The family of this 81-nucleotide RNA sequence from Cyprinodon variegatus is "mir-181 microRNA precursor family". Rfam links the family to the GO terms RISC complex and miRNA-mediated post-transcriptional gene silencing. The family has 157 seed sequences and 3,490 matches in Rfam 15.1. For this family Rfam cites "microRNAs: tiny regulators with great potential" (Ambros, Cell, 2001). The match comes from Rfam's covariance-model search (79 bits).
[Rfam]
RNA sequence: UUGCCUCAGUGAACAUUCAACGCUGUCGGUGAGUUUGAUCUUAACAAAAACCAUCGACCGUUGACUGUACCCUGUGGACGG
Numbered sequence: 001u002u003g004c005c006u007c008a009g010u011g012a013a014c015a016u017u018c019a020a021c022g023c024u025g026u027c028g029g030u031g032a033g034u035u036u037g038a039u040c041u042u043a044a045c046a047a048a049a050a051c052c053a054u055c056g057a058c059c060g061u062u063g064a065c066u067g068u069a070c071c072c073u074g075u076g077g078a079c080g081g
Stems, first nucleotide, its partner, number of pairs: 001081003004077002007074002014067002017064006025058007033051004